[Rfam]
RNA sequence: GAAGCGUCAACCCGGCACCGCUCCGGCGGGCAAGACCGGGACCGUCUCACCGCAAGGAGGGACAGCU
Numbered sequence: 001g002a003a004g005c006g007u008c009a010a011c012c013c014g015g016c017a018c019c020g021c022u023c024c025g026g027c028g029g030g031c032a033a034g035a036c037c038g039g040g041a042c043c044g045u046c047u048c049a050c051c052g053c054a055a056g057g058a059g060g061g062a063c064a065g066c067u
Stems, first nucleotide, its partner, number of pairs: 011040005018029004044063005050057002